[Rfam]
RNA sequence: UUCUAAAUUGUUUAGCCAUGAAAAUGGCAAUGGCUGGUGAUUUUUUAAUCACCGGCCU
Number, nucleotide and partner (000 for none) at each position: 001u000002u000003c000004u000005a000006a000007a000008u000009u000010g000011u000012u000013u000014a000015g028016c027017c026018a025019u000020g000021a000022a000023a000024a000025u018026g017027g016028c015029a000030a000031u000032g057033g056034c055035u054036g053037g052038u051039g050040a049041u048042u000043u000044u000045u000046u000047a000048a041049u040050c039051a038052c037053c036054g035055g034056c033057c032058u000
Pseudomonas sRNA P26: a 58-nucleotide RNA sequence from Psychromonas sp. Urea-02u-13. Lineage of the source: Bacteria > Pseudomonadota > Gammaproteobacteria > Psychromonadaceae > Psychromonas. Rfam describes the family as follows. This small RNA (sRNA) was computationally identified in the genome of the opportunistic pathogen Pseudomonas aeruginosa and its expression verified by northern blot analysis. P26 is conserved across many Gammaproteobacteria species and appears to be consistently located between the DNA directed RNA polymerase (beta subunit) and 50S ribosomal protein L7/L12 genes. For this family Rfam cites "Identification of 17 Pseudomonas aeruginosa sRNAs and prediction of sRNA-encoding genes in 10 diverse pathogens using the bioinformatic tool sRNAPredict2" (Livny et al., Nucleic Acids Res, 2006). Pairs were carried over by alignment from the consensus structure, which was predicted with RNAalifold.